[Rfam]
RNA: T-box leader
RNA sequence: GUUAUAACGAUGAAAAGAAGAGUAGCCAUUAAGAUGACUUUCAGAGAGCUAGCGGUAGGUGGAAGCUAGUAGAAUCUAAUGCGUGAAGAACCUCUUGGAGUUGCUAAUCGAAAAUGCUACGGGCAAUGAGUAGGCUUAGCCGGGUAAAGACCGAUAUAUCUUUUUGAGGUGAAUUACCUUUUGGUAAUUAACUAGGGUGGUAACGCGGAGUACAAGCUUCGUCCCUUUG
Numbered sequence: 001g002u003u004a005u006a007a008c009g010a011u012g013a014a015a016a017g018a019a020g021a022g023u024a025g026c027c028a029u030u031a032a033g034a035u036g037a038c039u040u041u042c043a044g045a046g047a048g049c050u051a052g053c054g055g056u057a058g059g060u061g062g063a064a065g066c067u068a069g070u071a072g073a074a075u076c077u078a079a080u081g082c083g084u085g086a087a088g089a090a091c092c093u094c095u096u097g098g099a100g101u102u103g104c105u106a107a108u109c110g111a112a113a114a115u116g117c118u119a120c121g122g123g124c125a126a127u128g129a130g131u132a133g134g135c136u137u138a139g140c141c142g143g144g145u146a147a148a149g150a151c152c153g154a155u156a157u158a159u160c161u162u163u164u165u166g167a168g169g170u171g172a173a174u175u176a177c178c179u180u181u182u183g184g185u186a187a188u189u190a191a192c193u194a195g196g197g198u199g200g201u202a203a204c205g206c207g208g209a210g211u212a213c214a215a216g217c218u219u220c221g222u223c224c225c226u227u228u229g
Stems, first nucleotide, its partner, number of pairs: 007101002015096004025084002030079001038072002048070006104139004109134001141153003172189007194226004205222005